[Rfam]
RNA sequence: CCUGUACAAUGAUGAUAGUUUGGCUCCCUCUACUGAUAUUUGUGAGGAAAGCAGCCACAACCGUUACCCAAUGUUUCUGAGUCUACAGC
Numbered sequence: 001c002c003u004g005u006a007c008a009a010u011g012a013u014g015a016u017a018g019u020u021u022g023g024c025u026c027c028c029u030c031u032a033c034u035g036a037u038a039u040u041u042g043u044g045a046g047g048a049a050a051g052c053a054g055c056c057a058c059a060a061c062c063g064u065u066a067c068c069c070a071a072u073g074u075u076u077c078u079g080a081g082u083c084u085a086c087a088g089c
Stems, first nucleotide, its partner, number of pairs: 002088005

This 89-nucleotide RNA sequence from Terrapene triunguis belongs to the Rfam family "Small nucleolar RNA SNORD100". By type it is a C/D-box small nucleolar RNA. The family's consensus secondary structure was predicted with RNAalifold. The family is grouped with related families in Rfam's "SNORD100 clan". A reference for the family is Galardi et al. (2002), "Purified box C/D snoRNPs are able to reproduce site-specific 2'-O-methylation of target RNA in vitro", Mol Cell Biol. A search with the family's covariance model found it, with a score of 68 bits.